Shown here is an 83-nucleotide RNA from Malus domestica, a member of the family "Small nucleolar RNA SNORD25". The family's RNA type in Rfam is C/D-box small nucleolar RNA. Clan: SNORD25 clan. Gene Ontology terms of the family: nucleolus and RNA processing.
[Rfam]
RNA sequence: AGUAACUGUGAUGAUUCCUUCAGACCUGUAAUGAUUUGCGGUAAUGAUCGCAUAUCUAAGAACAUCUAAGGGACUGAGUUCUA
Numbered sequence: 001a002g003u004a005a006c007u008g009u010g011a012u013g014a015u016u017c018c019u020u021c022a023g024a025c026c027u028g029u030a031a032u033g034a035u036u037u038g039c040g041g042u043a044a045u046g047a048u049c050g051c052a053u054a055u056c057u058a059a060g061a062a063c064a065u066c067u068a069a070g071g072g073a074c075u076g077a078g079u080u081c082u083a
Stems, first nucleotide, its partner, number of pairs: 002082001004080003
The organism belongs to Malus, within Eukaryota. Rfam 15.1 lists 985 matches to the family in 241 species.